[Rfam]
RNA sequence: ACCUUGCAAUCUGGUGGUGGGGCAGCUUUACGCGGCCUUGAGCACCCAUGUCCUUUGACUAAGUCCAAGCCGCCCGAAUUUUCAGGCGGCUUUUUU
Numbered sequence: 001a002c003c004u005u006g007c008a009a010u011c012u013g014g015u016g017g018u019g020g021g022g023c024a025g026c027u028u029u030a031c032g033c034g035g036c037c038u039u040g041a042g043c044a045c046c047c048a049u050g051u052c053c054u055u056u057g058a059c060u061a062a063g064u065c066c067a068a069g070c071c072g073c074c075c076g077a078a079u080u081u082u083c084a085g086g087c088g089g090c091u092u093u094u095u096u
Stems, first nucleotide, its partner, number of pairs: 012044002015041001017039001019038002022036002027032001050059003067092008076083002

This 96-nucleotide sequence from Agrobacterium bohemicum belongs to the Rfam family "RcsR1 sRNA". The organism belongs to Agrobacterium, within Bacteria. Pairs were carried over by alignment from the consensus structure, which is taken from published work. Rfam links the family to the GO terms negative regulation of translation in response to stress and sRNA-mediated gene silencing. From the family's description: RcsR1 (rhizobial cold and salinity stress riboregulator 1) trans-acting sRNA, formerly known as SmelC587, is a stress-related riboregulator, conserved in Sinorhizobium, Rhizobium and Agrobacterium.